[Rfam]
Overview: This 294-nucleotide RNA sequence belongs to the Rfam family "anti ponA RNA". Its family is annotated with response to antibiotic in the Gene Ontology. From the family's description: Transcribed antisense to the penicillin-binding protein 1A gene called ponA. It was identified by RNAseq and the expression was validated by 5' and 3' RACE experiments. AsponA expression was up or down regulated under different antibiotic stress.

RNA sequence: GAAAUUGUCGUCCUCGGCCGCCAGCAGCGCGCGGAUGAAGUCGGGAGGGAUGUCGUCGAAACGUAUCGGCGAGCGGCGCAUCUCGCCGAAUUCGGCAAUCAGCUUGCCGUCGGCGCUGUAGAUGCGCAGGGGAAUCUGCAGCUGUAUGCUGCGCAGCGAGUCGACAGAGGGCAAGCCGGGGCUAAGGUAGAGGAAGGCUCCGCUGAAACUGAGCACUAUCCCGCAAAAAGCGGCGACGCAGGACCACCAGAAAAACUUCAGCAAACGCAUCAAGGUUCUUGGAAUUCCAGAUAA
Numbered sequence: 001g002a003a004a005u006u007g008u009c010g011u012c013c014u015c016g017g018c019c020g021c022c023a024g025c026a027g028c029g030c031g032c033g034g035a036u037g038a039a040g041u042c043g044g045g046a047g048g049g050a051u052g053u054c055g056u057c058g059a060a061a062c063g064u065a066u067c068g069g070c071g072a073g074c075g076g077c078g079c080a081u082c083u084c085g086c087c088g089a090a091u092u093c094g095g096c097a098a099u100c101a102g103c104u105u106g107c108c109g110u111c112g113g114c115g116c117u118g119u120a121g122a123u124g125c126g127c128a129g130g131g132g133a134a135u136c137u138g139c140a141g142c143u144g145u146a147u148g149c150u151g152c153g154c155a156g157c158g159a160g161u162c163g164a165c166a167g168a169g170g171g172c173a174a175g176c177c178g179g180g181g182c183u184a185a186g187g188u189a190g191a192g193g194a195a196g197g198c199u200c201c202g203c204u205g206a207a208a209c210u211g212a213g214c215a216c217u218a219u220c221c222c223g224c225a226a227a228a229a230g231c232g233g234c235g236a237c238g239c240a241g242g243a244c245c246a247c248c249a250g251a252a253a254a255a256c257u258u259c260a261g262c263a264a265a266c267g268c269a270u271c272a273a274g275g276u277u278c279u280u281g282g283a284a285u286u287c288c289a290g291a292u293a294a
Stems, first nucleotide, its partner, number of pairs: 010172006017165001019163002025045001029041002047084006054078002057075002062069001086095003103158001105155003108148003115142008123133001125131001176290001178288004183283001186279002197268002202262006213239002217235001219233001221232001